Rfam assigns this 254-nucleotide RNA sequence from Helicocarpus griseus to the family "Small nucleolar RNA snR191".
[Rfam]
RNA sequence: UGCCAUUGCUAAGUCAAGGCAUCUUCCUGUGCAUGUUUUUCUUGCCGCUUUUUCUAUGGAAGUUUUGUCUGUUACAGCUUUGGUAGAUUGAUUCUUGCCCGCCGCCUUGGUUUCUUUCUGAAAUUGGGGCUGACAAGCGAUCGUUUUGAGAGCUAUGUCGUAUAGGGCUUGCUGUGUCUUGUUUUGAGUUGAGUCCUGCUUCCACUUUAUCUUGUGGCAUCAUAGCAGAUCUCUUAGUAACAUCCCACACAUUC
Numbered sequence: 001u002g003c004c005a006u007u008g009c010u011a012a013g014u015c016a017a018g019g020c021a022u023c024u025u026c027c028u029g030u031g032c033a034u035g036u037u038u039u040u041c042u043u044g045c046c047g048c049u050u051u052u053u054c055u056a057u058g059g060a061a062g063u064u065u066u067g068u069c070u071g072u073u074a075c076a077g078c079u080u081u082g083g084u085a086g087a088u089u090g091a092u093u094c095u096u097g098c099c100c101g102c103c104g105c106c107u108u109g110g111u112u113u114c115u116u117u118c119u120g121a122a123a124u125u126g127g128g129g130c131u132g133a134c135a136a137g138c139g140a141u142c143g144u145u146u147u148g149a150g151a152g153c154u155a156u157g158u159c160g161u162a163u164a165g166g167g168c169u170u171g172c173u174g175u176g177u178c179u180u181g182u183u184u185u186g187a188g189u190u191g192a193g194u195c196c197u198g199c200u201u202c203c204a205c206u207u208u209a210u211c212u213u214g215u216g217g218c219a220u221c222a223u224a225g226c227a228g229a230u231c232u233c234u235u236a237g238u239a240a241c242a243u244c245c246c247a248c249a250c251a252u253u254c
Base pairs, nucleotide, nucleotide: 003083004082005081017070018069019068020067021066023062024061025060026059027058031045032044033043095171097168098167099166100165104130105129106128107127108126109125110124111123112122113121114120137153138152141149142148143147174248175247176246180242181241182240191233192232193231197227198226199225200224202217203216204215205214
Description: The organism belongs to Helicocarpus griseus, within Eukaryota. A reference for the family is Badis et al. (2003), "A snoRNA that guides the two most conserved pseudouridine modifications within rRNA confers a growth advantage in yeast", RNA.